[Rfam]
RNA: Small nucleolar RNA SNORA72
Organism: Ornithorhynchus anatinus
RNA sequence: CUGCGAAUAUUCUCGCUGGCCUGAUAUGCCCGUGAUCAGGUCAGGCUAGACAUUCGCUAUAUUGAGACCCAGCAUUGUGUCCCCGGGAUUAGUCCUUGCCCUAAUCCUGGUUUUGCAAAUGCUGGUGACAAAU
Number, nucleotide and partner (000 for none) at each position: 001c000002u000003g057004c056005g055006a000007a000008u000009a000010u000011u000012c000013u000014c000015g000016c044017u043018g042019g041020c040021c039022u038023g037024a036025u035026a000027u000028g000029c000030c000031c000032g000033u000034g000035a025036u024037c023038a022039g021040g020041u019042c018043a017044g016045g000046c000047u000048a000049g000050a000051c000052a000053u000054u000055c005056g004057c003058u000059a000060u000061a000062u000063u000064g000065a000066g000067a126068c125069c124070c000071a000072g122073c121074a000075u000076u000077g000078u000079g000080u000081c000082c000083c110084c109085g108086g107087g106088a105089u104090u103091a102092g101093u000094c000095c000096u000097u000098g000099c000100c000101c092102u091103a090104a089105u088106c087107c086108u085109g084110g083111u000112u000113u000114u000115g000116c000117a000118a000119a000120u000121g073122c072123u000124g069125g068126u067127g000128a000129c000130a000131a000132a000133u000